[Rfam]
RNA sequence: UGAUUUUGAUCUUCCUGAUUGACCAAAAUCUGGAAAACUCAUUGAAUAUUUUAUCACAAAGCUGCCUUUAUUUUAUAAAAAAAGGGAUUGAUAG
Number, nucleotide and partner (000 for none) at each position: 001u000002g030003a029004u027005u026006u025007u000008g023009a000010u022011c021012u000013u000014c000015c000016u000017g000018a000019u000020u000021g011022a010023c008024c000025a006026a005027a004028a000029u003030c002031u000032g000033g000034a000035a000036a000037a000038c000039u000040c000041a000042u000043u000044g000045a000046a000047u000048a000049u000050u000051u000052u000053a000054u000055c000056a000057c000058a000059a000060a000061g000062c090063u000064g088065c086066c085067u084068u083069u082070a000071u081072u080073u079074u000075a000076u000077a000078a000079a073080a072081a071082a069083a068084g067085g066086g065087a000088u064089u000090g062091a000092u000093a000094g000
Shown here is a 94-nucleotide RNA, a member of the family "pan motif".
The base pairs follow the family's consensus structure, which is taken from published work.
The match comes from Rfam's covariance-model search (36 bits).